[Rfam]
RNA sequence: CAUAACUGUUAUUGCGAUAGGUGGAAUGAGAGGGUAACGCCUUGAAACGCCUGCUCAAAGAAACGCCAUGCAAAAGGGAGAUAAUGCCUCUGAUGUAUGAAGUGCGUUAAGAUGUCCAGUGUCCGCCCUAACAAGUAAUGUUGAGGAAAACCGAACUAGAGGUAGUCGAGCGGUAUAGGGCUAGAGUCUAUAAA
Numbered sequence: 001c002a003u004a005a006c007u008g009u010u011a012u013u014g015c016g017a018u019a020g021g022u023g024g025a026a027u028g029a030g031a032g033g034g035u036a037a038c039g040c041c042u043u044g045a046a047a048c049g050c051c052u053g054c055u056c057a058a059a060g061a062a063a064c065g066c067c068a069u070g071c072a073a074a075a076g077g078g079a080g081a082u083a084a085u086g087c088c089u090c091u092g093a094u095g096u097a098u099g100a101a102g103u104g105c106g107u108u109a110a111g112a113u114g115u116c117c118a119g120u121g122u123c124c125g126c127c128c129u130a131a132c133a134a135g136u137a138a139u140g141u142u143g144a145g146g147a148a149a150a151c152c153g154a155a156c157u158a159g160a161g162g163u164a165g166u167c168g169a170g171c172g173g174u175a176u177a178g179g180g181c182u183a184g185a186g187u188c189u190a191u192a193a194a
Base pairs, nucleotide, nucleotide: 018053019052020051021050022049023048031043032042033041034040054186055185056184063107064106065105066104067099068098069097070096071095072094075091076090077089078088114181115180116179117178123173124172125171126170127146128145129144134142135141152168153167155166156165157164158163
RNA: Group II catalytic intron D1-D4-5